Overview:
The family of this 98-nucleotide part of an RNA from Archaeoglobus sulfaticallidus is "Archaeal large subunit ribosomal RNA". Pairs were carried over by alignment from the consensus structure, which is taken from published work. Its family is annotated with ribosome and structural constituent of ribosome in the Gene Ontology. A reference for the family is Cannone et al. (2002), "The comparative RNA web (CRW) site: an online database of comparative sequence and structure information for ribosomal, intron, and other RNAs", BMC Bioinformatics.
RNA sequence: GUAGUGGCUCCAAAGGCAACCACUCCGAAGGAAAGCACCGCGAGGUGCGAGUACGAGGAGUGGCAUGCCAGAGUCACUGCGUACGUGUUGAAGAACGG
Numbered sequence: 001g002u003a004g005u006g007g008c009u010c011c012a013a014a015g016g017c018a019a020c021c022a023c024u025c026c027g028a029a030g031g032a033a034a035g036c037a038c039c040g041c042g043a044g045g046u047g048c049g050a051g052u053a054c055g056a057g058g059a060g061u062g063g064c065a066u067g068c069c070a071g072a073g074u075c076a077c078u079g080c081g082u083a084c085g086u087g088u089u090g091a092a093g094a095a096c097g098g
Base pairs, nucleotide, nucleotide: 001080002079003078004077005076006075007074008073009072010071015069016068020063021062022061023060024059025058026057030054035048036047037046038045039044084097085096086095